[Rfam]
RNA sequence: CUUGGCACCAUGAGGAGCAAUUAAUAUUUCACAUGAGAUUGAAGAAUCCGUGAUUUUUACAACUAAAGUCCUUUUCAUUCUGAGUGCCUA
Numbered sequence: 001c002u003u004g005g006c007a008c009c010a011u012g013a014g015g016a017g018c019a020a021u022u023a024a025u026a027u028u029u030c031a032c033a034u035g036a037g038a039u040u041g042a043a044g045a046a047u048c049c050g051u052g053a054u055u056u057u058u059a060c061a062a063c064u065a066a067a068g069u070c071c072u073u074u075u076c077a078u079u080c081u082g083a084g085u086g087c088c089u090a
Base pairs, nucleotide, nucleotide: 004088005087006086007085008084010078011077012076013075014074038047039046040045